[Rfam]
This 509-nucleotide RNA sequence from Microbispora rosea belongs to the Rfam family "Saccharopolyspora sRNA 350". By type it is an antisense RNA. Rfam links the family to the GO term regulation of secondary metabolite biosynthetic process. Taxonomically the source falls in Microbispora rosea (Bacteria, Bacillati, Actinomycetota, Streptosporangiaceae).
RNA sequence: UUGACCGUCCACUCCCACCGCGCGUCCGGGUUCACCAGCAUCUGCUCGCCGACGUACUCGCCGUCGGCCAGGACGCCGAGCAGCGUCUCGCCGCCGUACGCCCCCUGGCCGAGCUUGUCCACCUUGCCGUGGGCCAGGAGCACGACCUCGUCCAUCGGGGUGCCCGCCUCGGCGAUCACCUGGCCGGCCUCGUACUCCCGCUGGGUGAACAGGUCCGCCAUCGCGGCGAGCACGUCGGCGUCGUCGAAGCCGCGCAGCGCGGGGAGCUCGCACAGCUCCGCGGCGAUGACCCGCACGUCCGCCCCGGUCGAGACGAACGUCACCCGCCCGUCGGCCAUCUGGUAGGUCAGCCGCCGGUUGACCCGGUAGACGCCGCCCACCGCCUCGACCCAGGGCAGCACCCGCAGCAGGUGACGGGAGGUGAUCUCCUGCAUCUGCGGCGGCGUCUUGGUCGUCGUGGCCAGGUUGCGCGCGGCCCUGGUGCUCAGGCUGAGCCGGCUGUCGUUCGG
Numbered sequence: 001u002u003g004a005c006c007g008u009c010c011a012c013u014c015c016c017a018c019c020g021c022g023c024g025u026c027c028g029g030g031u032u033c034a035c036c037a038g039c040a041u042c043u044g045c046u047c048g049c050c051g052a053c054g055u056a057c058u059c060g061c062c063g064u065c066g067g068c069c070a071g072g073a074c075g076c077c078g079a080g081c082a083g084c085g086u087c088u089c090g091c092c093g094c095c096g097u098a099c100g101c102c103c104c105c106u107g108g109c110c111g112a113g114c115u116u117g118u119c120c121a122c123c124u125u126g127c128c129g130u131g132g133g134c135c136a137g138g139a140g141c142a143c144g145a146c147c148u149c150g151u152c153c154a155u156c157g158g159g160g161u162g163c164c165c166g167c168c169u170c171g172g173c174g175a176u177c178a179c180c181u182g183g184c185c186g187g188c189c190u191c192g193u194a195c196u197c198c199c200g201c202u203g204g205g206u207g208a209a210c211a212g213g214u215c216c217g218c219c220a221u222c223g224c225g226g227c228g229a230g231c232a233c234g235u236c237g238g239c240g241u242c243g244u245c246g247a248a249g250c251c252g253c254g255c256a257g258c259g260c261g262g263g264g265a266g267c268u269c270g271c272a273c274a275g276c277u278c279c280g281c282g283g284c285g286a287u288g289a290c291c292c293g294c295a296c297g298u299c300c301g302c303c304c305c306g307g308u309c310g311a312g313a314c315g316a317a318c319g320u321c322a323c324c325c326g327c328c329c330g331u332c333g334g335c336c337a338u339c340u341g342g343u344a345g346g347u348c349a350g351c352c353g354c355c356g357g358u359u360g361a362c363c364c365g366g367u368a369g370a371c372g373c374c375g376c377c378c379a380c381c382g383c384c385u386c387g388a389c390c391c392a393g394g395g396c397a398g399c400a401c402c403c404g405c406a407g408c409a410g411g412u413g414a415c416g417g418g419a420g421g422u423g424a425u426c427u428c429c430u431g432c433a434u435c436u437g438c439g440g441c442g443g444c445g446u447c448u449u450g451g452u453c454g455u456c457g458u459g460g461c462c463a464g465g466u467u468g469c470g471c472g473c474g475g476c477c478c479u480g481g482u483g484c485u486c487a488g489g490c491u492g493a494g495c496c497g498g499c500u501g502u503c504g505u506u507c508g509g
Stems, first nucleotide, its partner, number of pairs: 007389003011385001014382001019326002022323001027319002032316002036312001040308003048302002051299002054233002057230008065111004075103001078101001080099001082097001085094002117222001122217001127212001129210002132206001134204004138199001140197001144195001149192002156187001158185002161178002165174003234296002240290006249284006256277003259271003327342002330339001353377001355375003363369001391431005397425001399423003403418001405416001407415001437476002440473001443471004447465006477508001480503003485498002488495001